About this RNA: A member of the RNA family "BsrG" from Jeotgalibacillus campisalis, 249 nucleotides long. About the family: bsrE, bsrG and bsrH pair through intermolecular interactions with antisense sRNAs. The family's RNA type in Rfam is small RNA. Its family is annotated with autolysis and toxin activity in the Gene Ontology. The source organism's lineage runs through Bacteria, Bacillati, Bacillota, Caryophanaceae and Jeotgalibacillus.
[Rfam]
RNA sequence: CAAUAGAAUUGUUUCUCAAGGGUGGUCGGCACAUCCCGCUGAAAAGGGGGUGAUGCUGUUUGACAACGUUCGAAGGAAUUAUGAUGAUGAUUGCGUUUUCGGGUCUCGUCGUUUCGAUUUUGUCAUUUAACAAAAAAGAAUAAUCCACCCUUGAGUUUGGCGGCUCAGGUGGAUUAUUCGUUGUCUGCUUUAUGCUGUCACCCUUAGAGGGCAUUCUAUUGCCGGCGUUUGGUGUGUUGAGCACCAAGC
Number, nucleotide and partner (000 for none) at each position: 001c221002a220003a219004u218005a000006g216007a215008a214009u000010u213011g000012u000013u000014u000015c155016u154017c153018a152019a151020g150021g149022g148023u000024g145025g144026u143027c000028g000029g000030c000031a000032c052033a051034u000035c050036c049037c048038g000039c046040u000041g000042a000043a000044a000045a000046g039047g000048g037049g036050g035051u033052g032053a000054u000055g000056c000057u000058g000059u000060u000061u000062g124063a123064c122065a121066a120067c000068g118069u000070u000071c000072g000073a000074a000075g000076g000077a088078a000079u000080u000081a000082u000083g000084a000085u000086g000087a000088u077089g000090a000091u000092u000093g000094c000095g000096u000097u000098u000099u116100c000101g114102g113103g000104u000105c000106u000107c000108g000109u000110c000111g000112u000113u102114u101115c000116g099117a000118u068119u000120u066121u065122g064123u063124c062125a000126u000127u000128u000129a000130a000131c000132a000133a000134a000135a000136a000137a000138g000139a000140a000141u000142a000143a026144u025145c024146c000147a000148c022149c021150c020151u019152u018153g017154a016155g015156u000157u000158u000159g000160g000161c000162g000163g000164c000165u000166c187167a186168g185169g000170u000171g000172g000173a000174u000175u000176a000177u000178u000179c000180g000181u000182u000183g000184u000185c168186u167187g166188c000189u000190u000191u000192a000193u000194g000195c000196u000197g000198u000199c000200a000201c000202c211203c210204u000205u000206a000207g000208a000209g000210g203211g202212c000213a010214u008215u007216c006217u000218a004219u003220u002221g001222c000223c000224g000225g000226c000227g249228u248229u247230u246231g245232g244233u243234g242235u241236g000237u000238u000239g000240a000241g235242c234243a233244c232245c231246a230247a229248g228249c227